RNA: Bacterial large subunit ribosomal RNA, nucleotides 2608 to 2872
Organism: Rheinheimera sp. D18
RNA sequence: GGAUGAUUGAGUGGAGUUGCUCCUAGUACGAGAGGACCGGAGUGAACGAACCGCUGGUGUUCGGGUUGUCAUGCCAAUGGCAUUGCCCGGUAGCUACGUUCGGAACGGAUAAGCGCUGAAAGCAUCUAAGCGCGAAGCCGGCCACAAGAUGAGUCAUCCCUCAGGCUUUAAGCCUGCUAAAGGGUCGUUGAAGACCACAACGUUGAUAGGUGAGGUGUGGAAGCGCAGUGAUGUGUUAAGCUAACUCAUACUAAUUGCCCGUGUG
Numbered sequence: 001g002g003a004u005g006a007u008u009g010a011g012u013g014g015a016g017u018u019g020c021u022c023c024u025a026g027u028a029c030g031a032g033a034g035g036a037c038c039g040g041a042g043u044g045a046a047c048g049a050a051c052c053g054c055u056g057g058u059g060u061u062c063g064g065g066u067u068g069u070c071a072u073g074c075c076a077a078u079g080g081c082a083u084u085g086c087c088c089g090g091u092a093g094c095u096a097c098g099u100u101c102g103g104a105a106c107g108g109a110u111a112a113g114c115g116c117u118g119a120a121a122g123c124a125u126c127u128a129a130g131c132g133c134g135a136a137g138c139c140g141g142c143c144a145c146a147a148g149a150u151g152a153g154u155c156a157u158c159c160c161u162c163a164g165g166c167u168u169u170a171a172g173c174c175u176g177c178u179a180a181a182g183g184g185u186c187g188u189u190g191a192a193g194a195c196c197a198c199a200a201c202g203u204u205g206a207u208a209g210g211u212g213a214g215g216u217g218u219g220g221a222a223g224c225g226c227a228g229u230g231a232u233g234u235g236u237u238a239a240g241c242u243a244a245c246u247c248a249u250a251c252u253a254a255u256u257g258c259c260c261g262u263g264u265g
Base pairs, nucleotide, nucleotide: 001159002158003157004156005155006154007153008152011145012144013143014142017045018044019043020042021041022040023039047102048101049100050099051098055096056095057094062089063088064087065086066085067082068081069080070079071078072077106140107139108138113133114132115131116130117129162176163175164174165173166172179262182260183259184258185257186202187201188200189199190198207253208252209251210249211248212247213246214245217241220237223236224235225234226233227232